Rfam assigns this 54-nucleotide sequence from Coregonus sp. 'balchen' to the family "UnaL2 LINE 3' element". The eel long interspersed element (LINE) UnaL2 and its partner short interspersed element (SINE) share a conserved 3' tail containing a stem-loop that is critical for their retrotransposition. Its family is annotated with transposition, RNA-mediated in the Gene Ontology. Taxonomically the source falls in Coregonus (Eukaryota, Metazoa, Vertebrata, Teleostomi).

RNA sequence: UUGUUCACUAACUGUAAGUCGCUCUGGAUAAGAGCGUCUGCUAAAUAUGUAAAU
Numbered sequence: 001u002u003g004u005u006c007a008c009u010a011a012c013u014g015u016a017a018g019u020c021g022c023u024c025u026g027g028a029u030a031a032g033a034g035c036g037u038c039u040g041c042u043a044a045a046u047a048u049g050u051a052a053a054u
Stems, first nucleotide, its partner, number of pairs: 013043001014041003020036006